Rfam assigns this 98-nucleotide RNA from Aerococcus urinaehominis to the family "TPP riboswitch aptamer (THI element)". Vitamin B(1) in its active form thiamin pyrophosphate (TPP) is an essential coenzyme that is synthesised by coupling of pyrimidine and thiazole moieties in bacteria. Pairs were carried over by alignment from the consensus structure, which is taken from published work. Rfam links the family to the GO term thiamine pyrophosphate binding.

Nucleotides: 098
Base pairs, nucleotide, nucleotide: 006086007085008084009083010082011049012048013047014046017026018025019024033042034041035040054079055078056077057076060073061072062071063070
Number, partner (000 for none) and nucleotide at each position: 001000a002000a003000u004000c005000c006086g007085c008084a009083c010082u011049a012048g013047g014046g015000g016000c017026g018025c019024c020000u021000g022000c023000u024019g025018g026017c027000u028000g029000a030000g031000a032000u033042g034041u035040a036000g037000u038000g039000a040035u041034a042033c043000a044000a045000a046014c047013c048012c049011u050000u051000u052000a053000a054079c055078u056077u057076g058000a059000u060073c061072u062071a063070g064000u065000u066000a067000a068000c069000a070063c071062u072061a073060g074000c075000g076057u077056a078055a079054g080000g081000a082010a083009g084008u085007g086006c087000u088000a089000u090000c091000a092000a093000g094000g095000g096000u097000g098000u